[Rfam]
RNA sequence: CGAGCUGGACGACCUGCCCGUCCUGCAUGUCGACGGCGGGGACGACCUCG
Numbered sequence: 001c002g003a004g005c006u007g008g009a010c011g012a013c014c015u016g017c018c019c020g021u022c023c024u025g026c027a028u029g030u031c032g033a034c035g036g037c038g039g040g041g042a043c044g045a046c047c048u049c050g
Base pairs, nucleotide, nucleotide: 001020002019004017005016007014008013037050038049039048040047041046
This 50-nucleotide RNA from Halorientalis sp. IM1011 belongs to the Rfam family "Guanidine-II riboswitch aptamer (mini-ykkC)".
The literature on the family includes a 2017 paper in Cell Chem Biol by Huang et al., "The Structure of the Guanidine-II Riboswitch".
A search with the family's covariance model found it, with a score of 36 bits.